U1A polyadenylation inhibition element (PIE): a 77-nucleotide sequence from Salarias fasciatus.
This family represents the U1A polyadenylation inhibition element (PIE). PIE is a regulatory RNA which is responsible for the regulation of the length of the polyA tail of the U1A pre-mRNA. The PIE is located in the U1A mRNA 3' UTR. PIE adopts a U-shaped structure, with binding sites for a single U1A protein at each bend and when complexed with the two proteins it blocks activity of poly(A) polymerase (PAP), and inhibits its activity.
The family has 39 seed sequences and 510 matches in Rfam 15.1.
Gene Ontology term of the family: regulation of mRNA polyadenylation.
The literature on the family includes a 2004 paper in Biochemistry by Clerte and Hall, "Global and Local Dynamics of the U1A Polyadenylation Inhibition Element (PIE) RNA and PIE RNA-U1A Complexes".
It is annotated as a cis-regulatory element.
The source organism's lineage runs through Eukaryota, Actinopterygii, Osteoglossocephalai, Blennioidei and Salarias.

[Rfam]
RNA sequence: UAACCAAGCAUUGCACCCAGAGUCUGGUCUACCAGACAUUGUACCUGGAGCUUAUUUUUAAUUUUUUCGAAUAAAAU
Numbered sequence: 001u002a003a004c005c006a007a008g009c010a011u012u013g014c015a016c017c018c019a020g021a022g023u024c025u026g027g028u029c030u031a032c033c034a035g036a037c038a039u040u041g042u043a044c045c046u047g048g049a050g051c052u053u054a055u056u057u058u059u060a061a062u063u064u065u066u067u068c069g070a071a072u073a074a075a076a077u
Stems, first nucleotide, its partner, number of pairs: 006053004017048004022037005